[Rfam]
RNA sequence: AAGGUGGCAUCCCAUUUUUUGGAGCCACACUUACGACUUUUCUUUGUUUUAUUGUGUUAUAUCGGAUUCUGCUUCGAGCCUUUGGGACGGAGACAGAGGA
Numbered sequence: 001a002a003g004g005u006g007g008c009a010u011c012c013c014a015u016u017u018u019u020u021g022g023a024g025c026c027a028c029a030c031u032u033a034c035g036a037c038u039u040u041u042c043u044u045u046g047u048u049u050u051a052u053u054g055u056g057u058u059a060u061a062u063c064g065g066a067u068u069c070u071g072c073u074u075c076g077a078g079c080c081u082u083u084g085g086g087a088c089g090g091a092g093a094c095a096g097a098g099g100a
Stems, first nucleotide, its partner, number of pairs: 001032003004028005010023002069096003072092005079086002

Shown here is a 100-nucleotide RNA from Thermoflavimicrobium dichotomicum, a member of the family "pan motif". A search with the family's covariance model found it, with a score of 56 bits. The family's RNA type in Rfam is cis-regulatory element.